This 143-nucleotide RNA sequence from Struthio camelus belongs to the Rfam family "Small nucleolar RNA SNORA12". U108 belongs to the H/ACA family of snoRNAs. The sequence is predicted to guide the pseudouridylation of the U372 residue in the 28S rRNA subunit. However it has not been reported as a pseudouridylation site. Its family is annotated with nucleolus and RNA processing in the Gene Ontology.
[Rfam]
RNA sequence: UAUUGUGGUGGUUUCUGUAUCUGGCAGAUCUGUAACUGUAUCAGAGCGGCCUUAAACUACCACAAAGAUCAGAAAGGAGGGUGACCGUUCUGAGAACUCUUUCAGGCUAUUAGUUUUCAGUUUUCUGUUCAACUCCUACAGAA
Numbered sequence: 001u002a003u004u005g006u007g008g009u010g011g012u013u014u015c016u017g018u019a020u021c022u023g024g025c026a027g028a029u030c031u032g033u034a035a036c037u038g039u040a041u042c043a044g045a046g047c048g049g050c051c052u053u054a055a056a057c058u059a060c061c062a063c064a065a066a067g068a069u070c071a072g073a074a075a076g077g078a079g080g081g082u083g084a085c086c087g088u089u090c091u092g093a094g095a096a097c098u099c100u101u102u103c104a105g106g107c108u109a110u111u112a113g114u115u116u117u118c119a120g121u122u123u124u125c126u127g128u129u130c131a132a133c134u135c136c137u138a139c140a141g142a143a
Base pairs, nucleotide, nucleotide: 005063006062007061008060009059010058011057023051024050025049027047029045030044031043032042076136077135078134079133081086103127104126105125106124